[Rfam]
RNA sequence: GCCCUGAGUAAGGCGAUAAACUGCUCACCACCGGAUUCUGCAUCACUUGAUCACUGAUGGCUCAACGGCUCACGGCGGACAAGUUAAUAAUGACGGCUGCCUUUUGAGCGGGUUGCCGCAGACCGAAACGGAGAACAUCUCUGUCGGGCUGUGGUUAGUUUUCUGCACCCUUUUUGCAGCCGAACC
Number, nucleotide and partner (000 for none) at each position: 001g000002c000003c000004c000005u000006g000007a000008g000009u000010a000011a000012g000013g000014c000015g000016a000017u000018a000019a000020a000021c000022u000023g000024c000025u000026c000027a000028c078029c077030a000031c075032c074033g000034g000035a000036u000037u000038c068039u067040g066041c059042a058043u057044c056045a055046c000047u000048u000049g000050a000051u000052c000053a000054c000055u045056g044057a043058u042059g041060g109061c108062u107063c106064a105065a104066c040067g039068g038069c000070u000071c000072a000073c000074g032075g031076c000077g029078g028079a000080c000081a000082a000083g000084u000085u000086a000087a000088u000089a000090a000091u000092g000093a000094c182095g181096g180097c179098u178099g177100c176101c000102u000103u000104u065105u064106g063107a062108g061109c060110g000111g000112g000113u000114u000115g155116c154117c153118g152119c151120a000121g000122a000123c000124c000125g000126a000127a000128a144129c143130g142131g141132a140133g000134a000135a000136c000137a000138u000139c000140u132141c131142u130143g129144u128145c000146g000147g000148g000149c000150u000151g119152u118153g117154g116155u115156u000157a000158g000159u000160u000161u000162u000163c000164u000165g000166c000167a000168c000169c000170c000171u000172u000173u000174u000175u000176g100177c099178a098179g097180c096181c095182g094183a000184a000185c000186c000
This 186-nucleotide RNA belongs to the Rfam family "DUF2800 RNA". By type it is a cis-regulatory element.